[Rfam]
RNA sequence: AAGCUCCUUCGGGGUCGGGUGAAAGUCCCAACCGGCGGUGAUCUGUGAGAGAAGCAGCAACGCUUCUCUCACGUAAGUCCGUGACCCAAUUUAUUGAUAACGAUGAAUUGGCUGAUCUAGUGCAAGUCUAGAACCGACAGUAAAGUCUGGAUGGGAGAAGGAGAAU
Numbered sequence: 001a002a003g004c005u006c007c008u009u010c011g012g013g014g015u016c017g018g019g020u021g022a023a024a025g026u027c028c029c030a031a032c033c034g035g036c037g038g039u040g041a042u043c044u045g046u047g048a049g050a051g052a053a054g055c056a057g058c059a060a061c062g063c064u065u066c067u068c069u070c071a072c073g074u075a076a077g078u079c080c081g082u083g084a085c086c087c088a089a090u091u092u093a094u095u096g097a098u099a100a101c102g103a104u105g106a107a108u109u110g111g112c113u114g115a116u117c118u119a120g121u122g123c124a125a126g127u128c129u130a131g132a133a134c135c136g137a138c139a140g141u142a143a144a145g146u147c148u149g150g151a152u153g154g155g156a157g158a159a160g161g162a163g164a165a166u
Stems, first nucleotide, its partner, number of pairs: 004163007017029003031146002033136002035082004077134002086111005116132005138149003

The record is a 166-nucleotide RNA sequence from Paenibacillus montaniterrae, which matches "FMN riboswitch aptamer (RFN element)" in Rfam. A search with the family's covariance model found it, with a score of 104 bits. The organism belongs to Paenibacillus, within Bacteria. About the family: The RFN element is a highly conserved domain that is found frequently in the 5'-untranslated regions of prokaryotic mRNAs that encode for flavin mononucleotide (FMN) biosynthesis and transport proteins. This element is a metabolite-dependent riboswitch that directly binds FMN in the absence of proteins. In Bacillus subtilis, the riboswitch most likely controls gene expression by causing premature transcription termination within the 5' untranslated region of the ribDEAHT operon and precluding access to the ribosome-binding site of ypaA mRNA.The FMN riboswitch structure, reported in present an FMN-bound six-stem junction, adopts a butterfly-like scaffold, stapled together by opposingly directed but nearly identically folded peripheral domains.